[Rfam]
Rfam assigns this 101-nucleotide RNA sequence from Gorilla gorilla to the family "Y RNA". Taxonomically the source falls in Gorilla gorilla (Eukaryota, Sarcopterygii, Boreoeutheria, Hominidae). The base pairs follow the family's consensus structure, which is taken from published work. By type it is a non-coding RNA gene.
RNA sequence: GGCUGCUCCAAGUGCAGUGGUGUUUACAGCUAAUGACCACAACCAGUGACAGAUUUCUUUGUUGCUUCUUUACUCCCACUGCUUCACUUUACUAGCCAAAA
Dot-bracket structure: (((((.(..((..(.(((((.(.....(((.((........................)).)))...........))))))....)..)).).)))))....